RNA sequence: GGCUGGUCUGAAGGUAGCGAAUUAUCUCAGGUGAUUGUUCAGUCACUUGCAGAUAAAACUCCUUGUUCUACUGUUUACCCCCUUCUCACUAGUGCACUUGACUAUUCAAAA
Numbered sequence: 001g002g003c004u005g006g007u008c009u010g011a012a013g014g015u016a017g018c019g020a021a022u023u024a025u026c027u028c029a030g031g032u033g034a035u036u037g038u039u040c041a042g043u044c045a046c047u048u049g050c051a052g053a054u055a056a057a058a059c060u061c062c063u064u065g066u067u068c069u070a071c072u073g074u075u076u077a078c079c080c081c082c083u084u085c086u087c088a089c090u091a092g093u094g095c096a097c098u099u100g101a102c103u104a105u106u107c108a109a110a111a
Stems, first nucleotide, its partner, number of pairs: 001107002004104005010099002014095002016090002019087002042072001045069001